[Rfam]
RNA sequence: ACACAAGGAAGGAGGUGGUCCGCGAAAUUGAUAGCUUCAUGGACAUGUGAGGUGGCUGCGCGCUAGCAGCAGUGGCUCGGAACAACCGGCGACUUUGCGCUGGCGAAUUCCCCGCAGCCACCCGGCCCCCGAGUUUUCGGUCCGUCCAACCGGAAAUGCGCUCGGGGGCCGCUCCAU
Numbered sequence: 001a002c003a004c005a006a007g008g009a010a011g012g013a014g015g016u017g018g019u020c021c022g023c024g025a026a027a028u029u030g031a032u033a034g035c036u037u038c039a040u041g042g043a044c045a046u047g048u049g050a051g052g053u054g055g056c057u058g059c060g061c062g063c064u065a066g067c068a069g070c071a072g073u074g075g076c077u078c079g080g081a082a083c084a085a086c087c088g089g090c091g092a093c094u095u096u097g098c099g100c101u102g103g104c105g106a107a108u109u110c111c112c113c114g115c116a117g118c119c120a121c122c123c124g125g126c127c128c129c130c131g132a133g134u135u136u137u138c139g140g141u142c143c144g145u146c147c148a149a150c151c152g153g154a155a156a157u158g159c160g161c162u163c164g165g166g167g168g169c170c171g172c173u174c175c176a177u
Stems, first nucleotide, its partner, number of pairs: 015059005061105007069098004074093001076091001123171012136154006
RNA: Actinobacteria sRNA Ms_IGR-5